[Rfam]
RNA sequence: GCCUGGUCCAAGUACAGUGGUGCUUGCAACUAAUUGAUCACAACCAGUUACAGAUUUCUUUGUCCCUUCUCACUGCCACUGCUUCACUUGACUAGCCUUAA
Numbered sequence: 001g002c003c004u005g006g007u008c009c010a011a012g013u014a015c016a017g018u019g020g021u022g023c024u025u026g027c028a029a030c031u032a033a034u035u036g037a038u039c040a041c042a043a044c045c046a047g048u049u050a051c052a053g054a055u056u057u058c059u060u061u062g063u064c065c066c067u068u069c070u071c072a073c074u075g076c077c078a079c080u081g082c083u084u085c086a087c088u089u090g091a092c093u094a095g096c097c098u099u100a101a
Stems, first nucleotide, its partner, number of pairs: 001097001003095006010089002016080006029063002032060002
Annotation
Y RNA: a 101-nucleotide RNA sequence from Propithecus coquereli. Rfam's curators write: Y RNAs are components of the Ro ribonucleoprotein particle (Ro RNP), in association with Ro60 and La proteins. On this family, see Teunissen et al., Nucleic Acids Res 2000: "Conserved features of Y RNAs: a comparison of experimentally derived secondary structures". NCBI's taxonomy places the organism under Eukaryota, Eumetazoa, Mammalia, Strepsirrhini, Propithecus.